[Rfam]
RNA: Small nucleolar RNA SNORD19
Organism: Sinocyclocheilus grahami
RNA sequence: GAGGCAAGAGGAAAAUAAUACAAUCUAAACUUUUCUGAAGACAGUAAGUUCGCCUCAGACAUGCA
Dot-bracket structure: ((((................................................)))).........